[Rfam]
RNA sequence: UUCCAUGUUUGAUAGUUUUGUCGUAUAAUUGGCUAAAUAUGGUGGCCAGAGUUUCUACCGCAAUACCGUAAAUAUUGCGACUACGAUGAGCAACUUUUCUUUU
Numbered sequence: 001u002u003c004c005a006u007g008u009u010u011g012a013u014a015g016u017u018u019u020g021u022c023g024u025a026u027a028a029u030u031g032g033c034u035a036a037a038u039a040u041g042g043u044g045g046c047c048a049g050a051g052u053u054u055c056u057a058c059c060g061c062a063a064u065a066c067c068g069u070a071a072a073u074a075u076u077g078c079g080a081c082u083a084c085g086a087u088g089a090g091c092a093a094c095u096u097u098u099c100u101u102u103u
Stems, first nucleotide, its partner, number of pairs: 018089008029049007059079007
RNA: Purine riboswitch aptamer
Organism: Acholeplasma laidlawii